This 121-nucleotide sequence from Massilimicrobiota sp. An134 belongs to the Rfam family "Ribosomal protein L20 leader". This family is a putative r-protein leader autoregulatory structure found in B. subtilis and other low-GC Gram-positive bacteria. It is located in the 5' untranslated regions of mRNAs encoding initiation factor 3 followed by ribosomal proteins L35 and L20 (infC-rpmI-rplT). A Rho-independent transcription terminator structure that is probably involved in regulation is included at the 3' end. The organism belongs to Massiliimicrobium, within Bacteria. The family's RNA type in Rfam is cis-regulatory leader. It scores 62 bits against the family's covariance model.

RNA sequence: AGUGGAAAGAAGAAGUGCCUACUUCUCGCCUGAGUGUUUAUGAUGCUAGGCUUAUGUCACUAAGAUGAAUAUCUUAAUGUCAAUGUGUGGGUGCUUUAUGUGCUCACUUUUUGUUUAAACU
Number, nucleotide and partner (000 for none) at each position: 001a000002g000003u000004g000005g000006a000007a000008a000009g000010a000011a026012g025013a024014a023015g022016u021017g000018c000019c000020u000021a016022c015023u014024u013025c012026u011027c000028g051029c050030c049031u000032g000033a000034g046035u045036g044037u043038u000039u000040a000041u000042g000043a037044u036045g035046c034047u000048a000049g030050g029051c028052u000053u000054a000055u000056g000057u000058c000059a000060c000061u000062a000063a000064g000065a000066u000067g000068a000069a000070u000071a000072u000073c000074u000075u000076a000077a000078u000079g000080u000081c000082a000083a000084u000085g000086u000087g107088u106089g105090g104091g103092u102093g101094c100095u000096u000097u000098a000099u000100g094101u093102g092103c091104u090105c089106a088107c087108u000109u000110u000111u000112u000113g000114u000115u000116u000117a000118a000119a000120c000121u000